This 74-nucleotide RNA from Kordiimonas lacus belongs to the Rfam family "tRNA".
The match comes from Rfam's covariance-model search (64 bits).
The base pairs follow the family's consensus structure, which is taken from published work.
NCBI's taxonomy places the organism under Bacteria, Pseudomonadota, Alphaproteobacteria, Kordiimonadales, Kordiimonas.

RNA sequence: GCGGGUGUAGCUCAGUUGGUUAGAGCGCCAGUUUGUGGUACUGGAAGUCGCCGGUUCGAUCCCGGUCACUCGCC
Numbered sequence: 001g002c003g004g005g006u007g008u009a010g011c012u013c014a015g016u017u018g019g020u021u022a023g024a025g026c027g028c029c030a031g032u033u034u035g036u037g038g039u040a041c042u043g044g045a046a047g048u049c050g051c052c053g054g055u056u057c058g059a060u061c062c063c064g065g066u067c068a069c070u071c072g073c074c
Stems, first nucleotide, its partner, number of pairs: 001073007010026004028044005050066005